[Rfam]
RNA sequence: AACAACAACAGCAUAUUUUUUCGUAUAAUCUCAAGAAUCGGCUUGAGAGUCUCUACUCGGUCACCGUAAAUGAUCAGGCUACGAAAAUGGCGGAAAAGCUC
Dot-bracket structure: .................((((((((...(((((((......)))))))........(.(((((.......))))).)..))))))))..............
Numbered sequence: 001a002a003c004a005a006c007a008a009c010a011g012c013a014u015a016u017u018u019u020u021u022c023g024u025a026u027a028a029u030c031u032c033a034a035g036a037a038u039c040g041g042c043u044u045g046a047g048a049g050u051c052u053c054u055a056c057u058c059g060g061u062c063a064c065c066g067u068a069a070a071u072g073a074u075c076a077g078g079c080u081a082c083g084a085a086a087a088u089g090g091c092g093g094a095a096a097a098g099c100u101c
Stems, first nucleotide, its partner, number of pairs: 018087008029048007057077001059075005
The record is a 101-nucleotide RNA from Paenibacillus endophyticus, which matches "Purine riboswitch aptamer" in Rfam. Gene Ontology term of the family: purine nucleobase biosynthetic process. A search with the family's covariance model found it, with a score of 72 bits. Riboswitches are metabolite binding domains within certain messenger RNAs that serve as precision sensors for their corresponding targets.